[Rfam]
Nucleotides: 077
Base pairs, nucleotide, nucleotide: 014044015043016041017040020077021076022075023074024073025072026071049066050065051064052063054061055060
Number, partner (000 for none) and nucleotide at each position: 001000u002000g003000u004000u005000c006000u007000c008000c009000a010000u011000u012000c013000a014044g015043g016041c017040c018000a019000u020077a021076g022075c023074a024073g025072a026071a027000g028000c029000a030000u031000u032000c033000a034000c035000a036000a037000c038000u039000g040017g041016g042000u043015c044014c045000c046000u047000a048000u049066c050065a051064g052063a053000u054061u055060u056000c057000a058000a059000u060055g061054a062000u063052u064051c065050u066049g067000c068000a069000a070000a071026u072025u073024c074023u075022g076021c077020u